[Rfam]
RNA sequence: AGACAUCACAGAGGGAGAGACCGGUUCUGAACCGGCGCCGAAGGAGCAACCGCCCUGGAAACUCUCAGGCAGAAGGACCCUGUGACUGGA
Numbered sequence: 001a002g003a004c005a006u007c008a009c010a011g012a013g014g015g016a017g018a019g020a021c022c023g024g025u026u027c028u029g030a031a032c033c034g035g036c037g038c039c040g041a042a043g044g045a046g047c048a049a050c051c052g053c054c055c056u057g058g059a060a061a062c063u064c065u066c067a068g069g070c071a072g073a074a075g076g077a078c079c080c081u082g083u084g085a086c087u088g089g090a
Stems, first nucleotide, its partner, number of pairs: 006085006013079002021035004037070003040066002044064003050057001
Source information: A member of the RNA family "Glycine riboswitch aptamer" from Acetobacter aceti, 90 nucleotides long. The pairing is the family consensus, mapped onto this sequence.